[Rfam]
RNA sequence: GGGGAUGAUCGGUUUCGACAGCGGCUGUUGAAGCAGGGGAAGCGAGCCGAGGAACGCGGCAAUGAUCUCGUUAACCAUCUGCCGCAAAAAAAUAAUCGCCAACACCAAGCGCGAUUCCUUCGCCCUCGCUGCCUGAGCAGCGACCUGCGAAGUGUCAGCCCAGGGGCGUUCCCGCCCUGGAUCCUGGCAUCAGCUAGGGAACUUCACCGUUAACCCCGGUCACGGGGGCUGACGGGACAUCAAACAGUGACUGGGCCUGUCGGCGGCUUGUCCGCGUGACCGCCGGGGCCGAGAAAAUCACAGCGGACUGCGCUCGGAGAAGCCCUGGUUCUGCACCGUUGGACGCGGGUUCGAUUCCCGCCAUCUCCACUC
Dot-bracket structure: (((((((...........((((((.....(((.(((((....((((([[[[[...((((((....]]]]].........))))))........................................(((((((....))))))).........((((((.(((.(((.[[[[[[.))))))...)))))).......]]]]]]....((((((.((..[[[[[[...)).))))))...........]]]]]].(((((..(((.((...[[[[......)).))))))))..............]]]]...)))))......))))).)))....))))))...(((((.......))))))))))))....